[Rfam]
RNA sequence: GCGUCUGUUCCGUGCUUCCUUACUUCCCAUAGUGAAUGUGACGUAUGGAAUGUAAAGAAGUAUGGAGCCGCGCC
Numbered sequence: 001g002c003g004u005c006u007g008u009u010c011c012g013u014g015c016u017u018c019c020u021u022a023c024u025u026c027c028c029a030u031a032g033u034g035a036a037u038g039u040g041a042c043g044u045a046u047g048g049a050a051u052g053u054a055a056a057g058a059a060g061u062a063u064g065g066a067g068c069c070g071c072g073c074c
Stems, first nucleotide, its partner, number of pairs: 007068012020055004025050001027048005
The family of this 74-nucleotide RNA sequence from Vespula pensylvanica is "mir-1 microRNA precursor family".
Rfam links the family to the GO terms RISC complex and miRNA-mediated post-transcriptional gene silencing.
From the family's description: This family represents the microRNA (miRNA) mir-1 family. miRNAs are transcribed as ~70nt precursors (modelled here) and subsequently processed by the Dicer enzyme to give a ~22nt product.